[Rfam]
RNA sequence: AGAGUGUUAUGAUGUUGGAAAGUUCAGACUUUCCGAGUCUAGCUCAGCGCUACCCCCUAGUUUGACUAGGGGG
Numbered sequence: 001a002g003a004g005u006g007u008u009a010u011g012a013u014g015u016u017g018g019a020a021a022g023u024u025c026a027g028a029c030u031u032u033c034c035g036a037g038u039c040u041a042g043c044u045c046a047g048c049g050c051u052a053c054c055c056c057c058u059a060g061u062u063u064g065a066c067u068a069g070g071g072g073g
Stems, first nucleotide, its partner, number of pairs: 002045004011039003017034006053073009

L17 ribosomal protein downstream element: a 73-nucleotide sequence from Enterococcus sulfureus. Pairs were carried over by alignment from the consensus structure, which is taken from published work.